[Rfam]
RNA sequence: GUGGGCUAUGGGGACAUGGUCCCAGUCACUAUAGGGGGCAAGAUAGUAGGAUCUCUGUGUGCCAUCGCUGGAGUGUUGACAAUUGCACUCCCAGUACCCGUCAUUGUGUCCAAC
Numbered sequence: 001g002u003g004g005g006c007u008a009u010g011g012g013g014a015c016a017u018g019g020u021c022c023c024a025g026u027c028a029c030u031a032u033a034g035g036g037g038g039c040a041a042g043a044u045a046g047u048a049g050g051a052u053c054u055c056u057g058u059g060u061g062c063c064a065u066c067g068c069u070g071g072a073g074u075g076u077u078g079a080c081a082a083u084u085g086c087a088c089u090c091c092c093a094g095u096a097c098c099c100g101u102c103a104u105u106g107u108g109u110c111c112a113a114c
Stems, first nucleotide, its partner, number of pairs: 001114002004111002007108005013102003018097001021094001037077004049063002
The family of this 114-nucleotide sequence from Parambassis ranga is "Potassium channel RNA editing signal". The organism belongs to Parambassis, within Eukaryota. For this family Rfam cites "Control of human potassium channel inactivation by editing of a small mRNA hairpin" (Bhalla et al., Nat Struct Mol Biol, 2004). It is annotated as a cis-regulatory element.